[Rfam]
RNA sequence: UGGCACCCAAUGUCGGACUUGAGAACAGGGGAUUUCAUGAGGGAAGCUGUUCAUGGGCCCAAAGUAGAAAAAAGGUAAAGAAAAUAGAGGACCUGAAGACGUGGGAGCCUGCCACGCCAUGCUGAACCUCAGUAAAUGAACAGUGGUUAUGGGACAAGAAAUAAGUCAACAUGAGAUUUUUGUUCAAAGUUUAGAAAAGGCUUUAAAGGUGUGAGGAUUAAAGGUUAAAAUUAAAUAAUUGUGUCAAUAUUUUGAUUUUAUAAAAGCAGUUUGUCCUU
Numbered sequence: 001u002g003g004c005a006c007c008c009a010a011u012g013u014c015g016g017a018c019u020u021g022a023g024a025a026c027a028g029g030g031g032a033u034u035u036c037a038u039g040a041g042g043g044a045a046g047c048u049g050u051u052c053a054u055g056g057g058c059c060c061a062a063a064g065u066a067g068a069a070a071a072a073a074g075g076u077a078a079a080g081a082a083a084a085u086a087g088a089g090g091a092c093c094u095g096a097a098g099a100c101g102u103g104g105g106a107g108c109c110u111g112c113c114a115c116g117c118c119a120u121g122c123u124g125a126a127c128c129u130c131a132g133u134a135a136a137u138g139a140a141c142a143g144u145g146g147u148u149a150u151g152g153g154a155c156a157a158g159a160a161a162u163a164a165g166u167c168a169a170c171a172u173g174a175g176a177u178u179u180u181u182g183u184u185c186a187a188a189g190u191u192u193a194g195a196a197a198a199g200g201c202u203u204u205a206a207a208g209g210u211g212u213g214a215g216g217a218u219u220a221a222a223g224g225u226u227a228a229a230a231u232u233a234a235a236u237a238a239u240u241g242u243g244u245c246a247a248u249a250u251u252u253u254g255a256u257u258u259u260a261u262a263a264a265a266g267c268a269g270u271u272u273g274u275c276c277u278u
Stems, first nucleotide, its partner, number of pairs: 006030003013024002036046001038044001087130004095122001096120001100116005137156002141153001144151002162205003165201003212254005219247001222240002225237001263278002266275001
A member of the RNA family "Mason-Pfizer monkey virus packaging signal" from Cavia porcellus, 278 nucleotides long. The family's RNA type in Rfam is cis-regulatory element. The family's consensus secondary structure was predicted with PFOLD. Rfam's curators write: This family represents a group of sequences that are related to the Mason-Pfizer monkey virus (MPMV) packaging signal. The packaging signal is located in the 5' UTR and is required for specific RNA encapsidation. A reference for the family is Mustafa et al. (2004), "Mutational analysis of the predicted secondary RNA structure of the Mason-Pfizer monkey virus packaging signal", Virus Res.